Rfam assigns this 107-nucleotide sequence from Brettanomyces nanus to the family "Small nucleolar RNA snR48".

RNA sequence: UCAACGUGAUGACAUUAUUACGUUUUUAAACUUUGCUUUCUGGCAUCUCUAAUGUUAGAGCACAUAUAUUGUGUUCCAUGAAUACAACAAUUGACAAUUAUCUGAAA
Numbered sequence: 001u002c003a004a005c006g007u008g009a010u011g012a013c014a015u016u017a018u019u020a021c022g023u024u025u026u027u028a029a030a031c032u033u034u035g036c037u038u039u040c041u042g043g044c045a046u047c048u049c050u051a052a053u054g055u056u057a058g059a060g061c062a063c064a065u066a067u068a069u070u071g072u073g074u075u076c077c078a079u080g081a082a083u084a085c086a087a088c089a090a091u092u093g094a095c096a097a098u099u100a101u102c103u104g105a106a107a
Stems, first nucleotide, its partner, number of pairs: 059075004
Clan: SNORD60 clan. By type it is a C/D-box small nucleolar RNA. Rfam links the family to the GO terms RNA processing and nucleolus. A search with the family's covariance model found it, with a score of 61 bits. Pairs were carried over by alignment from the consensus structure, which was predicted with ILM.